[Rfam]
RNA sequence: UGGACCAAUGGUGACAACUGCCAGCAUAUGUGUCUCCCAUGAUGAAUGAUACAUGCCUGAAACUCUGAGGUCCGA
Numbered sequence: 001u002g003g004a005c006c007a008a009u010g011g012u013g014a015c016a017a018c019u020g021c022c023a024g025c026a027u028a029u030g031u032g033u034c035u036c037c038c039a040u041g042a043u044g045a046a047u048g049a050u051a052c053a054u055g056c057c058u059g060a061a062a063c064u065c066u067g068a069g070g071u072c073c074g075a
Base pairs, nucleotide, nucleotide: 002073003072004071005070006069
A member of the RNA family "Small nucleolar RNA SNORD113/SNORD114 family" from Saimiri boliviensis, 75 nucleotides long. The family is grouped with related families in Rfam's "SNORD74 clan". Gene Ontology terms of the family: nucleolus and RNA processing. It is annotated as a C/D-box small nucleolar RNA. The family's consensus secondary structure is taken from published work. Taxonomically the source falls in Saimiri boliviensis (Eukaryota, Dipnotetrapodomorpha, Boreoeutheria, Primates). The imprinted human domain at 14q32 contains two clusters of tandemly repeated small nucleolar RNAs named 14q(I) and 14q(II) snoRNAs. These two clusters are named SNORD113 and SNORD114 respectively in the HGNC approved gene symbol nomenclature. The snoRNAs found in both clusters are clearly related and are represented here by a single family. These snoRNAs are intron encoded and are processed from the tissue-specific non-coding human MEG8 RNA, which lies downstream of the imprinted genes DLK1 and GTL2. snoRNAs 14q(I) and 14q(II) differ from previously identified C/D box snoRNAs in their expression profiles and lack of complementarity to rRNA and snRNA. Homologues of these snoRNAs are found in the imprinted non-coding mouse transcript Rian, and in the rat non-coding Bsr (brain-specific repetitive) RNA.